The family of this 177-nucleotide RNA from Nicotiana attenuata is "small nucleolar RNA snoR143". Its family is annotated with nucleolus and RNA processing in the Gene Ontology. The organism belongs to Nicotiana, within Eukaryota. The base pairs follow the family's consensus structure, which was predicted with RNAalifold. A reference for the family is Chen and Wu (2009), "Mining small RNA sequencing data: a new approach to identify small nucleolar RNAs in Arabidopsis", Nucleic Acids Res.

RNA sequence: CUGCACAUGUUUAUAUAAAGGCUACGCUAAAAAUAUUGAAAUAGCGGAGCCUUGAGCGAUAGUGCAAAAAGGGAAUGCUGAGUUAAAUCAGCGGCGGCCAGACAACCGCUGAGAUGAAUCCACAGAUGGGUUCCUUUUUUUAUAAUGGUACUUGUCUACUAAUUUCAUCUCACACUC
Numbered sequence: 001c002u003g004c005a006c007a008u009g010u011u012u013a014u015a016u017a018a019a020g021g022c023u024a025c026g027c028u029a030a031a032a033a034u035a036u037u038g039a040a041a042u043a044g045c046g047g048a049g050c051c052u053u054g055a056g057c058g059a060u061a062g063u064g065c066a067a068a069a070a071g072g073g074a075a076u077g078c079u080g081a082g083u084u085a086a087a088u089c090a091g092c093g094g095c096g097g098c099c100a101g102a103c104a105a106c107c108g109c110u111g112a113g114a115u116g117a118a119u120c121c122a123c124a125g126a127u128g129g130g131u132u133c134c135u136u137u138u139u140u141u142a143u144a145a146u147g148g149u150a151c152u153u154g155u156c157u158a159c160u161a162a163u164u165u166c167a168u169c170u171c172a173c174a175c176u177c
Base pairs, nucleotide, nucleotide: 002066003065004064005063006062008058009057010056014054018053019052020051021050022049023048025046026045027044028043029042111171112170113169114168115167116166117165118164129153130152132150134148